[Rfam]
Nucleotides: 072
Stems, first nucleotide, its partner, number of pairs: 004068001006066005013059003017055001018053006025046003
Number, partner (000 for none) and nucleotide at each position: 001000a002000a003000a004068a005000u006066u007065a008064c009063c010062c011000a012000a013059a014058c015057a016000c017055g018053a019052g020051c021050a022049c023048u024000g025046a026045c027044u028000u029000a030000g031000a032000a033000a034000u035000a036000c037000u038000a039000a040000a041000u042000g043000c044027g045026g046025u047000a048023g049022g050021u051020g052019c053018u054000a055017c056000u057015u058014g059013u060000u061000g062010g063009g064008g065007u066006a067000c068004u069000u070000u071000u072000a